A member of the RNA family "ALIL pseudoknot" from Paracidovorax citrulli, 117 nucleotides long. The family's RNA type in Rfam is cis-regulatory element. For this family Rfam cites "Apical loop-internal loop RNA pseudoknots: a new type of stimulator of -1 translational frameshifting in bacteria" (Mazauric et al., J Biol Chem, 2008). The organism belongs to Paracidovorax citrulli, within Bacteria.
[Rfam]
RNA sequence: GGCGUAUUUUGCCCAGGCGGAGCUCGACCGCCGGUUCAAGCCAUGACGGGGUUCAUCGACGAACACCGCGCCAGGUACGGAGUCGAGCCGAUCUGCAGGGUGCUGCCGAUCGCUCCG
Numbered sequence: 001g002g003c004g005u006a007u008u009u010u011g012c013c014c015a016g017g018c019g020g021a022g023c024u025c026g027a028c029c030g031c032c033g034g035u036u037c038a039a040g041c042c043a044u045g046a047c048g049g050g051g052u053u054c055a056u057c058g059a060c061g062a063a064c065a066c067c068g069c070g071c072c073a074g075g076u077a078c079g080g081a082g083u084c085g086a087g088c089c090g091a092u093c094u095g096c097a098g099g100g101u102g103c104u105g106c107c108g109a110u111c112g113c114u115c116c117g
Base pairs, nucleotide, nucleotide: 016032017031018030019029020028078117079116080115081114082113089112090111092109093108095106096105097104098103